[Rfam]
Source information: DUF3800-I RNA: a 123-nucleotide sequence from Mycoplasma sp. 1654_15. Taxonomically the source falls in Mycoplasma (Bacteria, Bacillati, Mycoplasmatales, Mycoplasmataceae). Pairs were carried over by alignment from the consensus structure, which is taken from published work. Rfam describes the family as follows. Actinobacteria, Firmicutes, Fusobacteria, Proteobacteria (1 example), Tenericutes (2 examples).
RNA sequence: AUAAAAAUUUGUUAUAUAAUAUUAUCAGAUGACAGAUAAGUGCUGAAUCCUUCGUGGUUUAAGUGUAAUGUAAGUACUCCCCCUUAUCUGGGCUCCUUCAUUUUGAAGGAGUUUUUUUAUUUA
Numbered sequence: 001a002u003a004a005a006a007a008u009u010u011g012u013u014a015u016a017u018a019a020u021a022u023u024a025u026c027a028g029a030u031g032a033c034a035g036a037u038a039a040g041u042g043c044u045g046a047a048u049c050c051u052u053c054g055u056g057g058u059u060u061a062a063g064u065g066u067a068a069u070g071u072a073a074g075u076a077c078u079c080c081c082c083c084u085u086a087u088c089u090g091g092g093c094u095c096c097u098u099c100a101u102u103u104u105g106a107a108g109g110a111g112u113u114u115u116u117u118u119a120u121u122u123a
Stems, first nucleotide, its partner, number of pairs: 007030005012024001014022001033090006042083001045080001046059003063079001065077003091113010